[Rfam]
Nucleotides: 134
Base pairs, nucleotide, nucleotide: 007128009126010125011124012123013122020060021059022058023057024056025055062113063112064111065109066108069107070106071105075101076100077099078098079097
Number, partner (000 for none) and nucleotide at each position: 001000u002000c003000c004000c005000c006000g007128c008000a009126c010125u011124c012123u013122g014000g015000a016000g017000a018000g019000c020060g021059g022058c023057a024056g025055u026000a027000g028000c029000c030000c031000g032000c033000u034000g035000c036000g037000c038000a039000c040000a041000u042000g043000c044000u045000g046000c047000g048000c049000g050000g051000g052000c053000a054000a055025g056024c057023u058022g059021c060020c061000c062113a063112c064111c065109g066108a067000a068000g069107g070106g071105g072000c073000g074000c075101g076100c077099g078098c079097u080000c081000g082000c083000c084000g085000g086000g087000c088000u089000u090000u091000g092000c093000c094000c095000g096000c097079a098078g099077u100076g101075c102000a103000a104000u105071c106070u107069c108066u109065c110000a111064g112063g113062u114000a115000u116000c117000g118000a119000g120000g121000a122013c123012a124011g125010a126009g127000g128007g129000g130000c131000a132000u133000g134000u

Shown here is a 134-nucleotide sequence, a member of the family "Glycine riboswitch aptamer".
It scores 40 bits against the family's covariance model.
Rfam's curators write: This family represents the bacterial glycine riboswitch.